[Rfam]
RNA sequence: CGGCUGUAAUGGUCAAAUGGUUGAAGGCUUUCAUUACUCUUCUUCCGCUACCCCAUCUACAUUGGAACCCUCUAGCGGCGCCCAGUGCGAAUGCUGCGGUGGCCACCCACUCGCAUGGGUAACCUGCGAUCGCUGCGGUGGCCCUAAGCAAUGAAGAUUACACUUGAGGGAGGUUUCACUCUGCAGAGGCAUCUUCACCGUCGCAUGGCGUGCUGGAUUACGAUCGCUAGGGGCUUGGGGUAGUGGUUGAAGAUGGAGAUGUCAACUCCAAUUUUU
Numbered sequence: 001c002g003g004c005u006g007u008a009a010u011g012g013u014c015a016a017a018u019g020g021u022u023g024a025a026g027g028c029u030u031u032c033a034u035u036a037c038u039c040u041u042c043u044u045c046c047g048c049u050a051c052c053c054c055a056u057c058u059a060c061a062u063u064g065g066a067a068c069c070c071u072c073u074a075g076c077g078g079c080g081c082c083c084a085g086u087g088c089g090a091a092u093g094c095u096g097c098g099g100u101g102g103c104c105a106c107c108c109a110c111u112c113g114c115a116u117g118g119g120u121a122a123c124c125u126g127c128g129a130u131c132g133c134u135g136c137g138g139u140g141g142c143c144c145u146a147a148g149c150a151a152u153g154a155a156g157a158u159u160a161c162a163c164u165u166g167a168g169g170g171a172g173g174u175u176u177c178a179c180u181c182u183g184c185a186g187a188g189g190c191a192u193c194u195u196c197a198c199c200g201u202c203g204c205a206u207g208g209c210g211u212g213c214u215g216g217a218u219u220a221c222g223a224u225c226g227c228u229a230g231g232g233g234c235u236u237g238g239g240g241u242a243g244u245g246g247u248u249g250a251a252g253a254u255g256g257a258g259a260u261g262u263c264a265a266c267u268c269c270a271a272u273u274u275u276u
Base pairs, nucleotide, nucleotide: 002014003013004012019273020272021271022270023269025267027263029261031259032258035257037255038253039252040251041250042249045246046245047244048243049242050241051240052239053238069233070232071231073229074228075227076226077225079222080221082216083215084214085213086212087211088210089209091206092205093204094203096201097200098199099198101143103141104140105139106138107137108135109134111129112128113127114126115125117124118123144148152197153196154195155194156193157192158191163188164187165186170181171180172179
The family of this 276-nucleotide RNA from Colletotrichum liriopes is "Fungal signal recognition particle RNA". Clan: SRP clan. A reference for the family is Regalia et al. (2002), "Prediction of signal recognition particle RNA genes", Nucleic Acids Res. The family's consensus secondary structure is taken from published work. By type it is a non-coding RNA gene. Gene Ontology terms of the family: SRP-dependent cotranslational protein targeting to membrane, signal sequence recognition, signal recognition particle, endoplasmic reticulum targeting and signal recognition particle, plasma membrane targeting. It scores 163 bits against the family's covariance model.